[Rfam]
RNA sequence: CAAGUAAGAUAAGCGCCAGAACUUGGUGGGGUCGCUUGAUUGCAGGAUUGGAUCAGGGCUCACAAGUUGACGAGGUGAAGGUGUUCGAAUUUUUCGGCGGGGACCUUCCGGUAUUCGAUUGAUGCCGUAAGUUAGUUGGAACAAAACGUCCGGGUGACUGGACCGACAAACCACUAGCAUAAUACUA
Numbered sequence: 001c002a003a004g005u006a007a008g009a010u011a012a013g014c015g016c017c018a019g020a021a022c023u024u025g026g027u028g029g030g031g032u033c034g035c036u037u038g039a040u041u042g043c044a045g046g047a048u049u050g051g052a053u054c055a056g057g058g059c060u061c062a063c064a065a066g067u068u069g070a071c072g073a074g075g076u077g078a079a080g081g082u083g084u085u086c087g088a089a090u091u092u093u094u095c096g097g098c099g100g101g102g103a104c105c106u107u108c109c110g111g112u113a114u115u116c117g118a119u120u121g122a123u124g125c126c127g128u129a130a131g132u133u134a135g136u137u138g139g140a141a142c143a144a145a146a147c148g149u150c151c152g153g154g155u156g157a158c159u160g161g162a163c164c165g166a167c168a169a170a171c172c173a174c175u176a177g178c179a180u181a182a183u184a185c186u187a
Stems, first nucleotide, its partner, number of pairs: 020068006029059001077108005085097004109127006148163006
glmS glucosamine-6-phosphate activated ribozyme aptamer: a 187-nucleotide sequence from Paenibacillus albiflavus. The organism belongs to Paenibacillus, within Bacteria. The family's RNA type in Rfam is riboswitch. Pairs were carried over by alignment from the consensus structure, which is taken from published work.